[Rfam]
Nucleotides: 073
Base pairs, nucleotide, nucleotide: 003071004070005069006068007067009065010064011063012062013061017057018056019055020054023051024050025049026048027047
Number, partner (000 for none) and nucleotide at each position: 001000u002000c003071c004070g005069g006068u007067c008000c009065u010064c011063g012062g013061u014000a015000g016000u017057g018056g019055c020054c021000c022000c023051c024050g025049g026048a027047c028000c029000c030000g031000c032000g033000c034000a035000c036000g037000c038000g039000c040000g041000c042000g043000a044000g045000a046000c047027g048026u049025c050024c051023g052000u053000a054020g055019g056018c057017c058000u059000c060000g061013a062012u063011c064010g065009a066000a067007g068006a069005c070004c071003g072000c073000c